[Rfam]
RNA sequence: GCUCGACACGCGGGAGAGACCGAGGCUUCGUCAAUGGCGAAGUCGCGGCGCCGAAGGAGCAACGGCCCGGAAACUCUCAGGCAAAAGGACCGCGCGUCGACG
Dot-bracket structure: .....((.(((((......(((.......................))).(((((..(((...((...))....))))).))).......))))).)).....
Numbered sequence: 001g002c003u004c005g006a007c008a009c010g011c012g013g014g015a016g017a018g019a020c021c022g023a024g025g026c027u028u029c030g031u032c033a034a035u036g037g038c039g040a041a042g043u044c045g046c047g048g049c050g051c052c053g054a055a056g057g058a059g060c061a062a063c064g065g066c067c068c069g070g071a072a073a074c075u076c077u078c079a080g081g082c083a084a085a086a087g088g089a090c091c092g093c094g095c096g097u098c099g100a101c102g
Stems, first nucleotide, its partner, number of pairs: 006097002009094005020048003050082003053078002057076003063069002
The family of this 102-nucleotide sequence from Acuticoccus sediminis is "Glycine riboswitch aptamer". From the family's description: This family represents the bacterial glycine riboswitch. Lineage of the source: Bacteria > Pseudomonadati > Alphaproteobacteria > Hyphomicrobiales > Acuticoccus.